A member of the RNA family "Small nucleolar RNA SNORD58" from Xenopus laevis, 68 nucleotides long.

RNA sequence: UUGCAAUGAUGACUAUCUUAGGACACCUUUGGAAAACCCAUGAAAACAAUUUUUUUAUUCUGAGCAAC
Numbered sequence: 001u002u003g004c005a006a007u008g009a010u011g012a013c014u015a016u017c018u019u020a021g022g023a024c025a026c027c028u029u030u031g032g033a034a035a036a037c038c039c040a041u042g043a044a045a046a047c048a049a050u051u052u053u054u055u056u057a058u059u060c061u062g063a064g065c066a067a068c
Base pairs, nucleotide, nucleotide: 001067002066003065004064
Description
The match comes from Rfam's covariance-model search (77 bits). Gene Ontology terms of the family: RNA processing and nucleolus. Lineage of the source: Eukaryota > Bilateria > Chordata > Pipidae > Xenopus. The literature on the family includes a 2002 paper in Mol Cell Biol by Galardi et al., "Purified box C/D snoRNPs are able to reproduce site-specific 2'-O-methylation of target RNA in vitro". From the family's description: snoRNA U58 is found in introns 1, 3 and 6 of the ribosomal protein RPL17 gene in humans.